[Rfam]
RNA: Archaeal RNase P
RNA sequence: GCGAGCUGGUGCACAGUGCUGUUACGACAGAGGAAACUCCUCUCUCCUUGCAGAAAUUGUGGUCCGGAGAUGGGCAAUCAGAGAUGGUUGGCAACAGAGCAGAAAAAAAUCUCUCUUGGAGUGUACGAUGAGGACAAAAUCUGAGAUUUCCAAAAAGAGAAUGAGAAAUCUGACCCACAAGGAGCAAAGCCAAACAGAACUAUAGAAUUCUGCAUCUGGUUCAGGUAGGCUGCAAAGCGGAAUAAUGUGUAAAACAGAAAGAGGGUUACGGCCAGCACGC
Numbered sequence: 001g002c003g004a005g006c007u008g009g010u011g012c013a014c015a016g017u018g019c020u021g022u023u024a025c026g027a028c029a030g031a032g033g034a035a036a037c038u039c040c041u042c043u044c045u046c047c048u049u050g051c052a053g054a055a056a057u058u059g060u061g062g063u064c065c066g067g068a069g070a071u072g073g074g075c076a077a078u079c080a081g082a083g084a085u086g087g088u089u090g091g092c093a094a095c096a097g098a099g100c101a102g103a104a105a106a107a108a109a110u111c112u113c114u115c116u117u118g119g120a121g122u123g124u125a126c127g128a129u130g131a132g133g134a135c136a137a138a139a140u141c142u143g144a145g146a147u148u149u150c151c152a153a154a155a156a157g158a159g160a161a162u163g164a165g166a167a168a169u170c171u172g173a174c175c176c177a178c179a180a181g182g183a184g185c186a187a188a189g190c191c192a193a194a195c196a197g198a199a200c201u202a203u204a205g206a207a208u209u210c211u212g213c214a215u216c217u218g219g220u221u222c223a224g225g226u227a228g229g230c231u232g233c234a235a236a237g238c239g240g241a242a243u244a245a246u247g248u249g250u251a252a253a254a255c256a257g258a259a260a261g262a263g264g265g266u267u268a269c270g271g272c273c274a275g276c277a278c279g280c
Stems, first nucleotide, its partner, number of pairs: 001280003005276005010270002012249004017244001019030004035267003039264005044184004049214005057180005062075005076089005090175002095172004110160003114155001116153005133141002188231004197222005